[Rfam]
RNA sequence: GCACUGAAAGUGAGUGUUCGAGGAAAGCAAACUGGAAAAAUCCAUCUCAAAGUGCUGAUGUUUCCAGUUUGUUUUUCUCCAAUAUCUCAUUUUCGGUAG
Numbered sequence: 001g002c003a004c005u006g007a008a009a010g011u012g013a014g015u016g017u018u019c020g021a022g023g024a025a026a027g028c029a030a031a032c033u034g035g036a037a038a039a040a041u042c043c044a045u046c047u048c049a050a051a052g053u054g055c056u057g058a059u060g061u062u063u064c065c066a067g068u069u070u071g072u073u074u075u076u077c078u079c080c081a082a083u084a085u086c087u088c089a090u091u092u093u094c095g096g097u098a099g
Stems, first nucleotide, its partner, number of pairs: 004096005011089004016083003020079002023076008032067004